[Rfam]
RNA: sok antitoxin (CssrC)
Organism: Proteus myxofaciens
RNA sequence: GGGUGUUUGAAUCAAUCUGGUUCAAGCAACUAAUUUGUUCCAGAAUGAGAAAAGCCCCGGUAAUAUAGUAUAUUAACCGAGGCAUGAUCAAAGCAGACAAUUUGAUUUUGCCUCCUUUUAAAGGAGCAGUCAAUAGAAAUG
Numbered sequence: 001g002g003g004u005g006u007u008u009g010a011a012u013c014a015a016u017c018u019g020g021u022u023c024a025a026g027c028a029a030c031u032a033a034u035u036u037g038u039u040c041c042a043g044a045a046u047g048a049g050a051a052a053a054g055c056c057c058c059g060g061u062a063a064u065a066u067a068g069u070a071u072a073u074u075a076a077c078c079g080a081g082g083c084a085u086g087a088u089c090a091a092a093g094c095a096g097a098c099a100a101u102u103u104g105a106u107u108u109u110g111c112c113u114c115c116u117u118u119u120a121a122a123g124g125a126g127c128a129g130u131c132a133a134u135a136g137a138a139a140u141g
Stems, first nucleotide, its partner, number of pairs: 001058003005055004012048003016044005023037001026034001059078003063073004079114006086107007119141002